[Rfam]
RNA sequence: CGGUCAUGUCUCCUGCACCGGUAUCACGCGGAGGCACUCGGCAGUGCUAAGGGCUUUUUUAAAGCCUUAGACGUUCAUCGUCAACAGCGCUGCGUGAGGAGAGGUUCAAUGCCUC
Numbered sequence: 001c002g003g004u005c006a007u008g009u010c011u012c013c014u015g016c017a018c019c020g021g022u023a024u025c026a027c028g029c030g031g032a033g034g035c036a037c038u039c040g041g042c043a044g045u046g047c048u049a050a051g052g053g054c055u056u057u058u059u060u061a062a063a064g065c066c067u068u069a070g071a072c073g074u075u076c077a078u079c080g081u082c083a084a085c086a087g088c089g090c091u092g093c094g095u096g097a098g099g100a101g102a103g104g105u106u107c108a109a110u111g112c113c114u115c
Stems, first nucleotide, its partner, number of pairs: 001020004007036007037098004041093008051067006070082004101115005